[Rfam]
RNA: Small nucleolar RNA U83B
Organism: Sphenodon punctatus
RNA sequence: ACUGUUCAAUGAUGAUGUAAUGGAAUAUGCGCCAGGCAUGGCGCCUGACACCCAUGAGGAGUUAUUCCAUGCUGCCUUCCUUCUGAGAACAGC
Numbered sequence: 001a002c003u004g005u006u007c008a009a010u011g012a013u014g015a016u017g018u019a020a021u022g023g024a025a026u027a028u029g030c031g032c033c034a035g036g037c038a039u040g041g042c043g044c045c046u047g048a049c050a051c052c053c054a055u056g057a058g059g060a061g062u063u064a065u066u067c068c069a070u071g072c073u074g075c076c077u078u079c080c081u082u083c084u085g086a087g088a089a090c091a092g093c
Stems, first nucleotide, its partner, number of pairs: 002092004